[Rfam]
RNA sequence: GCACUCCAGCAAACCAUGUCCUUCAGACUCUGUGUCGGUCAUGGGCAAAGAUUGUGCCAUAGUGACUCAAAGUGUAUCCAGACGGACCUCCCUCUCUAUUGGAACCUGUCUCUACAACUUUGACACAGUC
Numbered sequence: 001g002c003a004c005u006c007c008a009g010c011a012a013a014c015c016a017u018g019u020c021c022u023u024c025a026g027a028c029u030c031u032g033u034g035u036c037g038g039u040c041a042u043g044g045g046c047a048a049a050g051a052u053u054g055u056g057c058c059a060u061a062g063u064g065a066c067u068c069a070a071a072g073u074g075u076a077u078c079c080a081g082a083c084g085g086a087c088c089u090c091c092c093u094c095u096c097u098a099u100u101g102g103a104a105c106c107u108g109u110c111u112c113u114a115c116a117a118c119u120u121u122g123a124c125a126c127a128g129u130c
Stems, first nucleotide, its partner, number of pairs: 001057004014044005020038002067123006080111006090102002
RNA: Small nucleolar RNA SNORA55
Organism: Esox lucius